[Rfam]
RNA sequence: GUCAAGUUUCAGGGAAGGUGAGAGUCCUUACUGGCGGUAUCCGGUUGCAAUCCGGGAGCCCGCGACCCGCGCGAGCGGUGGAUAUCGGUGAGAGUCCGAAGCCAACGGUUACAGUCCGGAUGAAAGAAACGAGGC
Numbered sequence: 001g002u003c004a005a006g007u008u009u010c011a012g013g014g015a016a017g018g019u020g021a022g023a024g025u026c027c028u029u030a031c032u033g034g035c036g037g038u039a040u041c042c043g044g045u046u047g048c049a050a051u052c053c054g055g056g057a058g059c060c061c062g063c064g065a066c067c068c069g070c071g072c073g074a075g076c077g078g079u080g081g082a083u084a085u086c087g088g089u090g091a092g093a094g095u096c097c098g099a100a101g102c103c104a105a106c107g108g109u110u111a112c113a114g115u116c117c118g119g120a121u122g123a124a125a126g127a128a129a130c131g132a133g134g135c
Stems, first nucleotide, its partner, number of pairs: 003133001006130005016028003030115002032104002034063004058102002067078002083100001085099004106118003
FMN riboswitch aptamer (RFN element): a 135-nucleotide RNA sequence from Bifidobacterium coryneforme.
A search with the family's covariance model found it, with a score of 84 bits.